RNA sequence: UUGUUAGCUAGCAAUCCCAUCGCUAAGGAGAAGCAUGGGCUCACGGGCUAUACCUGUGAUGUAAAACCCACAUACUAUACUACAUUGCACUGUGUACUAGUAUGGAUAGGGCACUAAUCUUUACUCUAUUUAGUGCAAAACUAUAAUUUCUCGUACAACAUAAAAUGUGAAGAAAAGUUAUAGUUAGAUUCAAGCAGGAGGAAGUAUACAAAUGUUUGAACCCUCUUUUACUAAAAUCCUGAUACUUCGGGUGUGUGGAUGUGCAAAUCCAUACUAUAUUAUUUAUUGCCAGUAAUGGCUGUUAGG
Numbered sequence: 001u002u003g004u005u006a007g008c009u010a011g012c013a014a015u016c017c018c019a020u021c022g023c024u025a026a027g028g029a030g031a032a033g034c035a036u037g038g039g040c041u042c043a044c045g046g047g048c049u050a051u052a053c054c055u056g057u058g059a060u061g062u063a064a065a066a067c068c069c070a071c072a073u074a075c076u077a078u079a080c081u082a083c084a085u086u087g088c089a090c091u092g093u094g095u096a097c098u099a100g101u102a103u104g105g106a107u108a109g110g111g112c113a114c115u116a117a118u119c120u121u122u123a124c125u126c127u128a129u130u131u132a133g134u135g136c137a138a139a140a141c142u143a144u145a146a147u148u149u150c151u152c153g154u155a156c157a158a159c160a161u162a163a164a165a166u167g168u169g170a171a172g173a174a175a176a177g178u179u180a181u182a183g184u185u186a187g188a189u190u191c192a193a194g195c196a197g198g199a200g201g202a203a204g205u206a207u208a209c210a211a212a213u214g215u216u217u218g219a220a221c222c223c224u225c226u227u228u229u230a231c232u233a234a235a236a237u238c239c240u241g242a243u244a245c246u247u248c249g250g251g252u253g254u255g256u257g258g259a260u261g262u263g264c265a266a267a268u269c270c271a272u273a274c275u276a277u278a279u280u281a282u283u284u285a286u287u288g289c290c291a292g293u294a295a296u297g298g299c300u301g302u303u304a305g306g
Base pairs, nucleotide, nucleotide: 001014002013003012004011017038018037019036020035022034023033041059042058043057044056045055046054047053072103073102074101075100076099077098081094082093108224109223110222111221112135113134114133115132116131117130140184141183142182143181144180145179146178147177148176149175151173152172155168156167189220190219191218192217193216194215195214196213238251239250240249241248253274254273255272256271257270258269259268288299289298290297291296
The record is a 306-nucleotide sequence, which matches "RAGATH-15 RNA" in Rfam.
It is one of the family's seed sequences.